[Rfam]
RNA sequence: UACUGUUUGUGAUGAAUUCUGAGCAAAUGGGAAUCUCUCUGAAAGAGGCUGAGGAGAACUCCUUUGCUGAAACAGUA
Number, nucleotide and partner (000 for none) at each position: 001u077002a076003c075004u074005g073006u072007u071008u000009g000010u000011g000012a000013u000014g000015a000016a000017u000018u000019c000020u000021g000022a000023g000024c000025a000026a000027a000028u000029g000030g000031g000032a000033a000034u000035c000036u000037c000038u000039c000040u000041g000042a000043a000044a000045g000046a000047g000048g000049c000050u000051g000052a000053g000054g000055a000056g000057a000058a000059c000060u000061c000062c000063u000064u000065u000066g000067c000068u000069g000070a000071a007072a006073c005074a004075g003076u002077a001
This 77-nucleotide RNA from Rhadina sibilatrix belongs to the Rfam family "Small nucleolar RNA SNORD79". The family's consensus secondary structure was predicted with PFOLD. A reference for the family is Galardi et al. (2002), "Purified box C/D snoRNPs are able to reproduce site-specific 2'-O-methylation of target RNA in vitro", Mol Cell Biol. snoRNA U79 or Z22 is found in intron 7 of the gas5 gene in humans and is also present in mice. Rfam classes the family as a C/D-box small nucleolar RNA. Its family is annotated with RNA processing and nucleolus in the Gene Ontology. The family has 28 seed sequences and 784 matches in Rfam 15.1.